[Rfam]
RNA sequence: CCAGUCUGAAAAUCACCUUUGAUAUCUCUGUUGUCGGGGGUGAGAUUACUGGGCCUAUAGUACUGUGGUACGUUAAGCUUAUUGCCUGCUCUGUAUAGCAGUGUGAUUAAACCCAUGUGCCUACAAUC
Number, nucleotide and partner (000 for none) at each position: 001c000002c000003a000004g000005u052006c051007u000008g049009a047010a046011a000012a000013u043014c042015a041016c040017c000018u000019u000020u000021g035022a034023u033024a032025u000026c000027u000028c000029u000030g000031u000032u024033g023034u022035c021036g000037g000038g000039g000040g016041u015042g014043a013044g000045a000046u010047u009048a000049c008050u000051g006052g005053g000054c000055c000056u000057a000058u000059a000060g000061u000062a000063c000064u000065g000066u000067g121068g000069u119070a118071c117072g116073u115074u000075a000076a000077g000078c000079u109080u000081a107082u106083u105084g000085c000086c000087u100088g099089c098090u000091c000092u000093g000094u000095a000096u000097a000098g089099c088100a087101g000102u000103g000104u000105g083106a082107u081108u000109a079110a000111a000112c000113c000114c000115a073116u072117g071118u070119g069120c000121c067122u000123a000124c000125a000126a000127u000128c000
A member of the RNA family "Small nucleolar RNA ACA64" from Coregonus sp. 'balchen', 128 nucleotides long. Pairs were carried over by alignment from the consensus structure, which was predicted with WAR. On this family, see Schattner et al., RNA 2006: "A computational screen for mammalian pseudouridylation guide H/ACA RNAs". The organism belongs to Coregonus, within Eukaryota. It scores 84 bits against the family's covariance model. It is annotated as an H/ACA-box small nucleolar RNA.